[Rfam]
RNA sequence: GGCCUAAAGCGUCCGUAGCCGGCCGUGCAAGUCCGUUGGGAAAUCGACGCGCUCAACGCGUCGGCGUCCAGCGGAAACUGUUCGGCUUGGGGCCGGAAGACCUGGGGGGUACGUCCGGGGUAGGAGUGAAAUCCUGUAAUCCUGGACGGACCACCAAUGGCGAAAGCACCUCAGGAGGACGGACCCGACGGUGAGGGACGAAAGCUAGGGUCUCGAACCGGAUUAGAUACCCGGGUAGUCCUAGCUGUAAACGAUGCUCGCUAGGUGUGCCACAGGCUACGAGCCUGUGCUGCGCCCUAGGGAAGCCGAGAAGCGAGCCGCCUGGGAAGUACGUCUGCAAGGAUGAAACUUAAAGGAAU
Numbered sequence: 001g002g003c004c005u006a007a008a009g010c011g012u013c014c015g016u017a018g019c020c021g022g023c024c025g026u027g028c029a030a031g032u033c034c035g036u037u038g039g040g041a042a043a044u045c046g047a048c049g050c051g052c053u054c055a056a057c058g059c060g061u062c063g064g065c066g067u068c069c070a071g072c073g074g075a076a077a078c079u080g081u082u083c084g085g086c087u088u089g090g091g092g093c094c095g096g097a098a099g100a101c102c103u104g105g106g107g108g109g110u111a112c113g114u115c116c117g118g119g120g121u122a123g124g125a126g127u128g129a130a131a132u133c134c135u136g137u138a139a140u141c142c143u144g145g146a147c148g149g150a151c152c153a154c155c156a157a158u159g160g161c162g163a164a165a166g167c168a169c170c171u172c173a174g175g176a177g178g179a180c181g182g183a184c185c186c187g188a189c190g191g192u193g194a195g196g197g198a199c200g201a202a203a204g205c206u207a208g209g210g211u212c213u214c215g216a217a218c219c220g221g222a223u224u225a226g227a228u229a230c231c232c233g234g235g236u237a238g239u240c241c242u243a244g245c246u247g248u249a250a251a252c253g254a255u256g257c258u259c260g261c262u263a264g265g266u267g268u269g270c271c272a273c274a275g276g277c278u279a280c281g282a283g284c285c286u287g288u289g290c291u292g293c294g295c296c297c298u299a300g301g302g303a304a305g306c307c308g309a310g311a312a313g314c315g316a317g318c319c320g321c322c323u324g325g326g327a328a329g330u331a332c333g334u335c336u337g338c339a340a341g342g343a344u345g346a347a348a349c350u351u352a353a354a355g356g357a358a359u
Base pairs, nucleotide, nucleotide: 001322002321003320009319011199012198013197014196016193018192019191020190022086023085024084025083027081028080030079031078032075033074034073035072036071037070038069039068040067045063046062047061048060049059050058051057090186091185092184093182094181095180101175102174103173104172105171106170107169108152109151112148113147114146115145116144117143118142119141123134124133125132160167161166204245205244206243207242208241209240214238218234219233220232221231256318257317258316259315260314261313264296265295266294267293268292269291271289272288273287274286275285276284277283300307301306324351325350326349333344334343335342336341
This 359-nucleotide part of an RNA from an uncultured haloarchaeon belongs to the Rfam family "Archaeal small subunit ribosomal RNA". Rfam links the family to the GO terms structural constituent of ribosome and ribosome. The family's consensus secondary structure is taken from published work.